[Rfam]
RNA sequence: CUUGAUCCCGCCCAGCCACAGCGGGAUCUCCCGGUCCUGGCCGUAGGUCGCCAGCACCGCCUGCGCCUC
Numbered sequence: 001c002u003u004g005a006u007c008c009c010g011c012c013c014a015g016c017c018a019c020a021g022c023g024g025g026a027u028c029u030c031c032c033g034g035u036c037c038u039g040g041c042c043g044u045a046g047g048u049c050g051c052c053a054g055c056a057c058c059g060c061c062u063g064c065g066c067c068u069c
Stems, first nucleotide, its partner, number of pairs: 016024002028065001030063001032059002037054003041050001043048001
The record is a 69-nucleotide RNA from Amycolatopsis saalfeldensis, which matches "ASpks TB sRNA" in Rfam. It scores 59 bits against the family's covariance model. Pairs were carried over by alignment from the consensus structure, which is taken from published work. Lineage of the source: Bacteria > Bacillati > Actinomycetota > Pseudonocardiales > Amycolatopsis.